This 131-nucleotide sequence from Flavobacteriaceae bacterium 3519-10 belongs to the Rfam family "Bacteroidete tryptophan peptide leader RNA".

RNA sequence: ACAUUUCUACAUUUGUACCAAUGAAAACGACCCAAAAUACAAACUGGUGGUGGCCUCAAAACUUUCAAAGUCUUGAGCAUCGCUCUUUUGUGUAAAAAUUAUAUUUUAUCAAAAAUAAAAAAGACUUUGAC
Numbered sequence: 001a002c003a004u005u006u007c008u009a010c011a012u013u014u015g016u017a018c019c020a021a022u023g024a025a026a027a028c029g030a031c032c033c034a035a036a037a038u039a040c041a042a043a044c045u046g047g048u049g050g051u052g053g054c055c056u057c058a059a060a061a062c063u064u065u066c067a068a069a070g071u072c073u074u075g076a077g078c079a080u081c082g083c084u085c086u087u088u089u090g091u092g093u094a095a096a097a098a099u100u101a102u103a104u105u106u107u108a109u110c111a112a113a114a115a116u117a118a119a120a121a122a123g124a125c126u127u128u129g130a131c
Stems, first nucleotide, its partner, number of pairs: 037093007046084004053078002059073001061071003
Background:
Gene Ontology terms of the family: regulation of gene expression and S-adenosylmethionine metabolic process. The family's consensus secondary structure is taken from published work. The match comes from Rfam's covariance-model search (56 bits).